MIR168 microRNA precursor family: a 102-nucleotide sequence from Mikania micrantha. Its family is annotated with miRNA-mediated post-transcriptional gene silencing and RISC complex in the Gene Ontology. Pairs were carried over by alignment from the consensus structure, which was predicted with WAR. Taxonomically the source falls in Mikania (Eukaryota, Streptophyta, Pentapetalae, Asteraceae).
RNA sequence: CUUACAGCGGUUUUCGGAUUCGCUUGGUGCAGGUCGGGAACAGCUUUCGUCUGAUAUUUCUUGUCCCGACUUGCAUCAAGUGAAUUUGAAACAGAUGUAAUG
Numbered sequence: 001c002u003u004a005c006a007g008c009g010g011u012u013u014u015c016g017g018a019u020u021c022g023c024u025u026g027g028u029g030c031a032g033g034u035c036g037g038g039a040a041c042a043g044c045u046u047u048c049g050u051c052u053g054a055u056a057u058u059u060c061u062u063g064u065c066c067c068g069a070c071u072u073g074c075a076u077c078a079a080g081u082g083a084a085u086u087u088g089a090a091a092c093a094g095a096u097g098u099a100a101u102g
Stems, first nucleotide, its partner, number of pairs: 014089002018085004024079010035068005041063002